The record is a 105-nucleotide RNA from Labrus bergylta, which matches "Vault RNA" in Rfam. Rfam describes the family as follows. This family of RNAs are found as part of the enigmatic vault ribonucleoprotein complex. The complex consists of a major vault protein (MVP), two minor vault proteins (VPARP and TEP1), and several small untranslated RNA molecules. Rfam classes the family as a non-coding RNA gene.
[Rfam]
RNA sequence: GCACUGGUUUAGCUCAGUGGUUACUUCGAACACAUUUUCUCCUGUAGAAAUAGCUGCUCUCCAUCCCUCACCGGGAUCGAACCACGGGCGCUGUCCAGUGUUUUU
Numbered sequence: 001g002c003a004c005u006g007g008u009u010u011a012g013c014u015c016a017g018u019g020g021u022u023a024c025u026u027c028g029a030a031c032a033c034a035u036u037u038u039c040u041c042c043u044g045u046a047g048a049a050a051u052a053g054c055u056g057c058u059c060u061c062c063a064u065c066c067c068u069c070a071c072c073g074g075g076a077u078c079g080a081a082c083c084a085c086g087g088g089c090g091c092u093g094u095c096c097a098g099u100g101u102u103u104u105u
Stems, first nucleotide, its partner, number of pairs: 002100006012089004017085004025081005
The base pairs follow the family's consensus structure, which is taken from published work.
Rfam 15.1 lists 2,873 matches to the family in 431 species.